The family of this 73-nucleotide RNA sequence from Phyllotreta striolata is "mir-71 microRNA precursor family".
A reference for the family is Li et al. (2009), "Direct sequencing and expression analysis of a large number of miRNAs in Aedes aegypti and a multi-species survey of novel mosquito miRNAs", BMC Genomics.

RNA sequence: UCUUCAUGAAAGACAAGGUAGUGAGACAAAAAAAAUAUGCGAACAUCUCACUACCCAUGUCUUUCACAAAGCC
Numbered sequence: 001u002c003u004u005c006a007u008g009a010a011a012g013a014c015a016a017g018g019u020a021g022u023g024a025g026a027c028a029a030a031a032a033a034a035a036u037a038u039g040c041g042a043a044c045a046u047c048u049c050a051c052u053a054c055c056c057a058u059g060u061c062u063u064u065c066a067c068a069a070a071g072c073c
Stems, first nucleotide, its partner, number of pairs: 008065008017055002020052007
Annotation: The family's consensus secondary structure was predicted with RNAalifold. Taxonomically the source falls in Phyllotreta (Eukaryota, Eumetazoa, Insecta, Pterygota). A search with the family's covariance model found it, with a score of 52 bits.